[Rfam]
RNA: U4 spliceosomal RNA
RNA sequence: AUCUUUGCGCUUGGGGCAUCGACGCAGCUAUUGAGGUUCUAUCCGAGGCGCGUCUAUUGCUGGUUGAAAAGUAUUUCCAAAUCCCCCCUUAGGCCUGGGGUUUGGCCCUGGCCUUUGAGAAUUUCUGGAAGGGCUCUCUACGGGGUAAAGAC
Numbered sequence: 001a002u003c004u005u006u007g008c009g010c011u012u013g014g015g016g017c018a019u020c021g022a023c024g025c026a027g028c029u030a031u032u033g034a035g036g037u038u039c040u041a042u043c044c045g046a047g048g049c050g051c052g053u054c055u056a057u058u059g060c061u062g063g064u065u066g067a068a069a070a071g072u073a074u075u076u077c078c079a080a081a082u083c084c085c086c087c088c089u090u091a092g093g094c095c096u097g098g099g100g101u102u103u104g105g106c107c108c109u110g111g112c113c114u115u116u117g118a119g120a121a122u123u124u125c126u127g128g129a130a131g132g133g134c135u136c137u138c139u140a141c142g143g144g145g146u147a148a149a150g151a152c
Stems, first nucleotide, its partner, number of pairs: 021054005027049003035044002086119001088117001091114005097108003